[Rfam]
RNA sequence: CCGUCGGCAUUAGCUCAAGUGAUUUCAUCCUCAUGCCGGACUUCCUAUCCAUCUGGUCCCUGCGCUGGGGUUGGUUCGAGACCGGUGGGUGCUUUCUGACCCUUUU
Numbered sequence: 001c002c003g004u005c006g007g008c009a010u011u012a013g014c015u016c017a018a019g020u021g022a023u024u025u026c027a028u029c030c031u032c033a034u035g036c037c038g039g040a041c042u043u044c045c046u047a048u049c050c051a052u053c054u055g056g057u058c059c060c061u062g063c064g065c066u067g068g069g070g071u072u073g074g075u076u077c078g079a080g081a082c083c084g085g086u087g088g089g090u091g092c093u094u095u096c097u098g099a100c101c102c103u104u105u106u
Stems, first nucleotide, its partner, number of pairs: 003100005013090004018086001020084002028079002
The family of this 106-nucleotide sequence from Microcebus murinus is "Vault RNA". It scores 36 bits against the family's covariance model. NCBI's taxonomy places the organism under Eukaryota, Eumetazoa, Teleostomi, Boreoeutheria, Microcebus. The base pairs follow the family's consensus structure, which is taken from published work.